[Rfam]
Rfam assigns this 325-nucleotide RNA from Robiginitalea biformata to the family "Bacterial RNase P class A". The family's RNA type in Rfam is ribozyme. Rfam links the family to the GO terms tRNA processing, ribonuclease P activity and dimeric ribonuclease P complex.

RNA sequence: CGAGCAGGCCGGCUUAUCGCUCUUUGCGGAUGCAGGGGGAGGAAAGUCCGGACACCACAGUGCAGCAUAGCGGGUAACACCCGUCCCCCGACGGGCCCUGCCCGGUCGGGGAGGACCAGUGCAACAGAAAGUAUGUACAGUUCGGCUGUAGUGAAAUCAUGUAAACUCUAUGCGGUGAAACGCCAUGUAGUCCAGCGACCGAGGGCGGCACGUCCGAGCUGGCGGGUAGGCGGAUCGAACCCGGGGGCAACCCCGGGUCCAGAUAAAUGAUAAGCGCCCCGGGCAACCGGGGAGACAGAAUCCGGCUUACAGGCCUGCUUUUUUA
Numbered sequence: 001c002g003a004g005c006a007g008g009c010c011g012g013c014u015u016a017u018c019g020c021u022c023u024u025u026g027c028g029g030a031u032g033c034a035g036g037g038g039g040a041g042g043a044a045a046g047u048c049c050g051g052a053c054a055c056c057a058c059a060g061u062g063c064a065g066c067a068u069a070g071c072g073g074g075u076a077a078c079a080c081c082c083g084u085c086c087c088c089c090g091a092c093g094g095g096c097c098c099u100g101c102c103c104g105g106u107c108g109g110g111g112a113g114g115a116c117c118a119g120u121g122c123a124a125c126a127g128a129a130a131g132u133a134u135g136u137a138c139a140g141u142u143c144g145g146c147u148g149u150a151g152u153g154a155a156a157u158c159a160u161g162u163a164a165a166c167u168c169u170a171u172g173c174g175g176u177g178a179a180a181c182g183c184c185a186u187g188u189a190g191u192c193c194a195g196c197g198a199c200c201g202a203g204g205g206c207g208g209c210a211c212g213u214c215c216g217a218g219c220u221g222g223c224g225g226g227u228a229g230g231c232g233g234a235u236c237g238a239a240c241c242c243g244g245g246g247g248c249a250a251c252c253c254c255g256g257g258u259c260c261a262g263a264u265a266a267a268u269g270a271u272a273a274g275c276g277c278c279c280c281g282g283g284c285a286a287c288c289g290g291g292g293a294g295a296c297a298g299a300a301u302c303c304g305g306c307u308u309a310c311a312g313g314c315c316u317g318c319u320u321u322u323u324u325a
Stems, first nucleotide, its partner, number of pairs: 002320009011310001012275007020039008044308003048305005053177004060211004065173005070084005085113001086111007114168002119166002121162003136150006181232004192222005203215004239258008
Dot-bracket structure: .(((((((((((((((((.((((((((....))))))))....[[[.[[[[[((((...[[[[.((((((((((.....)))))((((((((............))))))).)((...(((((............((((((...)))))).........)))..)))))))))))))...((((.......(((((......((((.]]]]))))..)))))......))))......((((((((....))))))))..........))))))).........................]]]]]]]].).))))))))).....